[Rfam]
RNA sequence: ACACUACAUAUUUAUUUAUUUAUUUCUUAGUAAUGUUUACUGGAACUUAAAUCUGUGAUAACCUAAACUAAAAGUCUCAAACAACCCGUUACUUGCUGACCAAUUUUUGUAGGUACUGGGUGUAAAUAUGAUGACCGGUACCA
Numbered sequence: 001a002c003a004c005u006a007c008a009u010a011u012u013u014a015u016u017u018a019u020u021u022a023u024u025u026c027u028u029a030g031u032a033a034u035g036u037u038u039a040c041u042g043g044a045a046c047u048u049a050a051a052u053c054u055g056u057g058a059u060a061a062c063c064u065a066a067a068c069u070a071a072a073a074g075u076c077u078c079a080a081a082c083a084a085c086c087c088g089u090u091a092c093u094u095g096c097u098g099a100c101c102a103a104u105u106u107u108u109g110u111a112g113g114u115a116c117u118g119g120g121u122g123u124a125a126a127u128a129u130g131a132u133g134a135c136c137g138g139u140a141c142c143a
Stems, first nucleotide, its partner, number of pairs: 029093005037084002055068001112142008

About this RNA
A member of the RNA family "Herpesvirus saimiri U RNA1/RNA2" from Rhadinovirus saimiriinegamma2, 143 nucleotides long. A reference for the family is Conrad et al. (2006), "The challenge of viral snRNPs", Cold Spring Harb Symp Quant Biol. The family's RNA type in Rfam is small nuclear RNA.